[Rfam]
About this RNA: A member of the RNA family "Small nucleolar RNA Z102/R77" from Ceratodon purpureus, 84 nucleotides long. The family's RNA type in Rfam is C/D-box small nucleolar RNA. Gene Ontology terms of the family: RNA processing and nucleolus. Pairs were carried over by alignment from the consensus structure, which was predicted with PFOLD. On this family, see Barneche et al., J Mol Biol 2001: "Identification of 66 box C/D snoRNAs in Arabidopsis thaliana: extensive gene duplications generated multiple isoforms predicting new ribosomal RNA 2'-O-methylation sites".
RNA sequence: AAGUGGGAGGAUGAAUUAUUGUUUCCCUAUUGGUUUGAUUGCCGUGAUGAUGGCUUUUUAUUGCUUCAAACUUGCUGACUACUU
Numbered sequence: 001a002a003g004u005g006g007g008a009g010g011a012u013g014a015a016u017u018a019u020u021g022u023u024u025c026c027c028u029a030u031u032g033g034u035u036u037g038a039u040u041g042c043c044g045u046g047a048u049g050a051u052g053g054c055u056u057u058u059u060a061u062u063g064c065u066u067c068a069a070a071c072u073u074g075c076u077g078a079c080u081a082c083u084u
Stems, first nucleotide, its partner, number of pairs: 002083004037057001041054003
Dot-bracket structure: .((((...............................(...(((........)))..)......................)))).